Overview:
The record is a 172-nucleotide sequence from Luteimonas aestuarii, which matches "Proteobacterial sRNA sX4" in Rfam. A search with the family's covariance model found it, with a score of 74 bits. Rfam classes the family as a small RNA.
[Rfam]
RNA sequence: UCUCGGGAAAUCCCGGAGAGGUGUCCGAGUGGUUGAAGGAGCACGCCUGGAAAGUGUGUAAGCGUCUAAACCGCGCUUCGGGGGUUCGAAUCCCCCUCUCUCCGCCAGUUUCAAGUGGUUUGAUGGUUCGGGUCGCGUGGGUUUCGCCGGCGGCUUCGAAGAGGGGGUGAGA
Numbered sequence: 001u002c003u004c005g006g007g008a009a010a011u012c013c014c015g016g017a018g019a020g021g022u023g024u025c026c027g028a029g030u031g032g033u034u035g036a037a038g039g040a041g042c043a044c045g046c047c048u049g050g051a052a053a054g055u056g057u058g059u060a061a062g063c064g065u066c067u068a069a070a071c072c073g074c075g076c077u078u079c080g081g082g083g084g085u086u087c088g089a090a091u092c093c094c095c096c097u098c099u100c101u102c103c104g105c106c107a108g109u110u111u112c113a114a115g116u117g118g119u120u121u122g123a124u125g126g127u128u129c130g131g132g133u134c135g136c137g138u139g140g141g142u143u144u145c146g147c148c149g150g151c152g153g154c155u156u157c158g159a160a161g162a163g164g165g166g167g168u169g170a171g172a
Stems, first nucleotide, its partner, number of pairs: 002081002005078003013027001015025001029074002034068002037065001039063001042058005093167004097162002103117003132151004137147003